RNA sequence: CGACUAGAAGGGCUGCACAAGUGGCUCGUUAGGGUUUAACCCUGUCUGGUUG
Numbered sequence: 001c002g003a004c005u006a007g008a009a010g011g012g013c014u015g016c017a018c019a020a021g022u023g024g025c026u027c028g029u030u031a032g033g034g035u036u037u038a039a040c041c042c043u044g045u046c047u048g049g050u051u052g
Base pairs, nucleotide, nucleotide: 001052002051003050004049005048006047007046008045010027011026012025013024014023015022016021030044031043032042033041034040
RNA: DUF3800-VI RNA